A member of the RNA family "MIR2629 microRNA precursor family" from Medicago truncatula, 72 nucleotides long. Pairs were carried over by alignment from the consensus structure, which was predicted with RNAalifold. A search with the family's covariance model found it, with a score of 62 bits.
RNA sequence: UGACGAAGUUUUUCUCGGCAGUUAACUGCAACCGUAUUUCUAAAACUUCGGCAGUUAACUGCUGAGGGGUAU
Numbered sequence: 001u002g003a004c005g006a007a008g009u010u011u012u013u014c015u016c017g018g019c020a021g022u023u024a025a026c027u028g029c030a031a032c033c034g035u036a037u038u039u040c041u042a043a044a045a046c047u048u049c050g051g052c053a054g055u056u057a058a059c060u061g062c063u064g065a066g067g068g069g070u071a072u
Stems, first nucleotide, its partner, number of pairs: 012068002015065015